[Rfam]
RNA sequence: CGCGGCCAAGGCGAUGGAUUUCCGCCGGGCAUUUUGCCGAACCGCCUGCCGCGCCAAACGGCGCCAGGGCUGAUGAUUCCUACCUGAAA
Numbered sequence: 001c002g003c004g005g006c007c008a009a010g011g012c013g014a015u016g017g018a019u020u021u022c023c024g025c026c027g028g029g030c031a032u033u034u035u036g037c038c039g040a041a042c043c044g045c046c047u048g049c050c051g052c053g054c055c056a057a058a059c060g061g062c063g064c065c066a067g068g069g070c071u072g073a074u075g076a077u078u079c080c081u082a083c084c085u086g087a088a089a
Stems, first nucleotide, its partner, number of pairs: 010026004016080003020076002044070004
A member of the RNA family "Fluoride riboswitch aptamer (crcB RNA motif)" from Novosphingobium sp. AAP1, 89 nucleotides long. Pairs were carried over by alignment from the consensus structure, which is taken from published work.